[Rfam]
RNA sequence: CCGCUCGGCGAUGGUGAGAUCGUCUCCUUCGUUCUGAAGGGCCUGGACAUGGAGUAUAACUCGGUUGUCUCGGCCCUCUCUGCCCGCGUCGAGCCUGUCACCAUCGUCGAGCUCUACAACCAGCUUCUUAGUUUUGAAG
Numbered sequence: 001c002c003g004c005u006c007g008g009c010g011a012u013g014g015u016g017a018g019a020u021c022g023u024c025u026c027c028u029u030c031g032u033u034c035u036g037a038a039g040g041g042c043c044u045g046g047a048c049a050u051g052g053a054g055u056a057u058a059a060c061u062c063g064g065u066u067g068u069c070u071c072g073g074c075c076c077u078c079u080c081u082g083c084c085c086g087c088g089u090c091g092a093g094c095c096u097g098u099c100a101c102c103a104u105c106g107u108c109g110a111g112c113u114c115u116a117c118a119a120c121c122a123g124c125u126u127c128u129u130a131g132u133u134u135u136g137a138a139g
Base pairs, nucleotide, nucleotide: 005137006136007135008134088108090106091105092104
The family of this 139-nucleotide RNA from Triticum aestivum is "Small nucleolar RNA Z247". Taxonomically the source falls in Triticum (Eukaryota, Magnoliopsida, Triticeae, Triticinae).